[Rfam]
RNA sequence: UGCUCUGAGGAUGAUCAAAACAAUUUCGUUCUUCCGAGGUUUUUAUUAAUCUAUGUUGAAAGAAAUUGAGACCUGAACCGAAGAGGA
Numbered sequence: 001u002g003c004u005c006u007g008a009g010g011a012u013g014a015u016c017a018a019a020a021c022a023a024u025u026u027c028g029u030u031c032u033u034c035c036g037a038g039g040u041u042u043u044u045a046u047u048a049a050u051c052u053a054u055g056u057u058g059a060a061a062g063a064a065a066u067u068g069a070g071a072c073c074u075g076a077a078c079c080g081a082a083g084a085g086g087a
Base pairs, nucleotide, nucleotide: 003085004084005083006082
RNA: Small nucleolar RNA Z159/U59